[Rfam]
RNA sequence: AGGACCAGAAGAGGUGCGUUGACCAGGUAACCAGCAAGAGGGGCCCUUUCCCUAAGACAGCUGGCCAGGGGGUAAACGCCGAGAUGCACGGCGCGGGGGCGCGCGGUGUCAUCGGUCAGACAGGUUGAAUCCUGUUGACUGUCACCUGAUUUGGUGGAGCGCUUCUGGUACA
Numbered sequence: 001a002g003g004a005c006c007a008g009a010a011g012a013g014g015u016g017c018g019u020u021g022a023c024c025a026g027g028u029a030a031c032c033a034g035c036a037a038g039a040g041g042g043g044c045c046c047u048u049u050c051c052c053u054a055a056g057a058c059a060g061c062u063g064g065c066c067a068g069g070g071g072g073u074a075a076a077c078g079c080c081g082a083g084a085u086g087c088a089c090g091g092c093g094c095g096g097g098g099g100c101g102c103g104c105g106g107u108g109u110c111a112u113c114g115g116u117c118a119g120a121c122a123g124g125u126u127g128a129a130u131c132c133u134g135u136u137g138a139c140u141g142u143c144a145c146c147u148g149a150u151u152u153g154g155u156g157g158a159g160c161g162c163u164u165c166u167g168g169u170a171c172a
Base pairs, nucleotide, nucleotide: 006167007166008165009164010163011162016079017078018077019076020075022073023072024071031064032063033062034061035060083113084112085111086110087108088107089106091104092103093102094101114140115139116138117137119136120135121134122133123132124131142157143156144155145154146153
The record is a 172-nucleotide RNA sequence from Gallaecimonas xiamenensis, which matches "Lysine riboswitch aptamer" in Rfam.
The match comes from Rfam's covariance-model search (82 bits).
The family has 47 seed sequences and 3,224 matches in Rfam 15.1.
Gene Ontology term of the family: lysine biosynthetic process.